[Rfam]
RNA sequence: AUUCUAUGAAAGACAUGGGUAGUGAGAUGUUUUGUAUUAGUUAAUCAUCUUACUAUUCUGUCUUUCCAAAGAAU
Numbered sequence: 001a002u003u004c005u006a007u008g009a010a011a012g013a014c015a016u017g018g019g020u021a022g023u024g025a026g027a028u029g030u031u032u033u034g035u036a037u038u039a040g041u042u043a044a045u046c047a048u049c050u051u052a053c054u055a056u057u058c059u060g061u062c063u064u065u066c067c068a069a070a071g072a073a074u
Base pairs, nucleotide, nucleotide: 008066009065010064011063012062013061014060015059017058018057019056021054022053023052024051025050026049027048028047029046
About this RNA
Rfam assigns this 74-nucleotide RNA from Rotaria sp. Silwood2 to the family "mir-71 microRNA precursor family". Rfam links the family to the GO terms RISC complex and miRNA-mediated post-transcriptional gene silencing. Rfam 15.1 lists 372 matches to the family in 291 species. The match comes from Rfam's covariance-model search (69 bits). Taxonomically the source falls in Rotaria (Eukaryota, Spiralia, Eurotatoria, Philodinida).